A member of the RNA family "ASpks TB sRNA" from Streptomyces inusitatus, 75 nucleotides long.
Lineage of the source: Bacteria > Bacillati > Actinomycetes > Kitasatosporales > Streptomyces.
The family has 77 seed sequences and 9,052 matches in Rfam 15.1.

RNA sequence: CUUCACCGAGCCCAGCAGCACCGGCUGACCGGCCGGGCGGUCCUGGCCGUACGUGGCGAGGAGCGCCUGUGCCUC
Numbered sequence: 001c002u003u004c005a006c007c008g009a010g011c012c013c014a015g016c017a018g019c020a021c022c023g024g025c026u027g028a029c030c031g032g033c034c035g036g037g038c039g040g041u042c043c044u045g046g047c048c049g050u051a052c053g054u055g056g057c058g059a060g061g062a063g064c065g066c067c068u069g070u071g072c073c074u075c
Stems, first nucleotide, its partner, number of pairs: 014026003032070002038065002043060002047056003